The family of this 100-nucleotide RNA sequence from Longispora fulva is "Glycine riboswitch aptamer". The match comes from Rfam's covariance-model search (72 bits). Rfam's curators write: This family represents the bacterial glycine riboswitch.

RNA sequence: CUCACCCGAGUGGGAGAGACCCCCUGGCCUUGUCGGCAGGGGGCGCCGAAGGGGCAAUACCUCCCCGGAAACUCUCAGGCAAAAGGACCACUCGGGCAGG
Numbered sequence: 001c002u003c004a005c006c007c008g009a010g011u012g013g014g015a016g017a018g019a020c021c022c023c024c025u026g027g028c029c030u031u032g033u034c035g036g037c038a039g040g041g042g043g044c045g046c047c048g049a050a051g052g053g054g055c056a057a058u059a060c061c062u063c064c065c066c067g068g069a070a071a072c073u074c075u076c077a078g079g080c081a082a083a084a085g086g087a088c089c090a091c092u093c094g095g096g097c098a099g100g
Base pairs, nucleotide, nucleotide: 006095007094008093009092010091011090012089013088020043021042022041023040024039025038026037045080046079047078048076049075052074053073054072058067